[Rfam]
RNA sequence: CCCCUUUUCAACCGCUUGCCCGCCCCCUAUAUAUGAUCUGUUCCUUCGGGAACUAUGGACAUAAACGCGCUCGUAAUAAGCGGAUCGGACCCGGGGGCGGUACCCGGCGACUCCACCAAAACCUGCUCAUUUGGCAGUCAUGGGGUCGAAACAGGAUCGACGAACGUCUAAAGGGGUUAGCUUUGUCUCGGUGAGUUACCACCGUUAUCGGUACAAUUUAAGCUAGUUGCAAAUGACAACAAAGCUCCGAUGGCUCUGGCUGCGUAAGCGGUUCGAUCUAUCGAAAUCUUAAGUCCUUACGCUUAGCAGCCUAAGGCGGGGUUUGCAGGUACCUGGCAACAGAAACCUGCGCU
Numbered sequence: 001c002c003c004c005u006u007u008u009c010a011a012c013c014g015c016u017u018g019c020c021c022g023c024c025c026c027c028u029a030u031a032u033a034u035g036a037u038c039u040g041u042u043c044c045u046u047c048g049g050g051a052a053c054u055a056u057g058g059a060c061a062u063a064a065a066c067g068c069g070c071u072c073g074u075a076a077u078a079a080g081c082g083g084a085u086c087g088g089a090c091c092c093g094g095g096g097g098c099g100g101u102a103c104c105c106g107g108c109g110a111c112u113c114c115a116c117c118a119a120a121a122c123c124u125g126c127u128c129a130u131u132u133g134g135c136a137g138u139c140a141u142g143g144g145g146u147c148g149a150a151a152c153a154g155g156a157u158c159g160a161c162g163a164a165c166g167u168c169u170a171a172a173g174g175g176g177u178u179a180g181c182u183u184u185g186u187c188u189c190g191g192u193g194a195g196u197u198a199c200c201a202c203c204g205u206u207a208u209c210g211g212u213a214c215a216a217u218u219u220a221a222g223c224u225a226g227u228u229g230c231a232a233a234u235g236a237c238a239a240c241a242a243a244g245c246u247c248c249g250a251u252g253g254c255u256c257u258g259g260c261u262g263c264g265u266a267a268g269c270g271g272u273u274c275g276a277u278c279u280a281u282c283g284a285a286a287u288c289u290u291a292a293g294u295c296c297u298u299a300c301g302c303u304u305a306g307c308a309g310c311c312u313a314a315g316g317c318g319g320g321g322u323u324u325g326c327a328g329g330u331a332c333c334u335g336g337c338a339a340c341a342g343a344a345a346c347c348u349g350c351g352c353u
Stems, first nucleotide, its partner, number of pairs: 040053005057188005067181002069177004081166002085163003091107005108148007189204004195214002198212003319334004325350006